[Rfam]
RNA sequence: GUGCCCUUUAAAUCGGUCCAGAGAGGCCGGUAAGGAGACGUCUUACAAAUUUCAUAGGGAAAUUGGAUUUUGUAAACACUUCUUAUCGAUCGGAUCGGUUUGGGAAGUGUUUUUUUCAU
Numbered sequence: 001g002u003g004c005c006c007u008u009u010a011a012a013u014c015g016g017u018c019c020a021g022a023g024a025g026g027c028c029g030g031u032a033a034g035g036a037g038a039c040g041u042c043u044u045a046c047a048a049a050u051u052u053c054a055u056a057g058g059g060a061a062a063u064u065g066g067a068u069u070u071u072g073u074a075a076a077c078a079c080u081u082c083u084u085a086u087c088g089a090u091c092g093g094a095u096c097g098g099u100u101u102g103g104g105a106a107g108u109g110u111u112u113u114u115u116u117c118a119u
Stems, first nucleotide, its partner, number of pairs: 005035004013030006040071001044067001046065003050061004072114001074112012
RNA: PyrR binding site
Organism: Feifania hominis